RNA sequence: GCGCGGUGAAGCUGAAGAGAGCCGUCUAUUGACAGUUCGCCUCAGAAUGUGCUGUCAUGGAGUCGCUCUCUUCAGAUGAUCCCGG
Number, nucleotide and partner (000 for none) at each position: 001g000002c000003g000004c000005g000006g000007u000008g000009a000010a000011g000012c000013u000014g073015a072016a071017g070018a069019g000020a067021g066022c065023c000024g000025u061026c060027u059028a058029u000030u000031g056032a055033c054034a000035g052036u051037u000038c000039g000040c000041c000042u000043c000044a000045g000046a000047a000048u000049g000050u000051g036052c035053u000054g033055u032056c031057a000058u028059g027060g026061a025062g000063u000064c000065g022066c021067u020068c000069u018070c017071u016072u015073c014074a000075g000076a000077u000078g000079a000080u000081c000082c000083c000084g000085g000
mir-46/mir-47/mir-281 microRNA precursor family: an 85-nucleotide sequence.